[Rfam]
RNA: Ribosomal protein L20 leader
Organism: Bacillus sp. V5-8f
RNA sequence: AAGGAAAAGAAGAAGCACCCGCUUCUCACCUGGUUGACGCUCAUAAAUUGCAGUUGGCAGGUCCAUGAUUUGAUUAUUUGGAUUUAUUCUACUUAGUCUAUUAUGUGUGGGUGUUUAAGGCAUCCACACUUUUUUAUUGCU
Dot-bracket structure: ..........((((((....)))))).(((.....(((((.........)).)))....)))...........................................((((((((((...)))))))))).............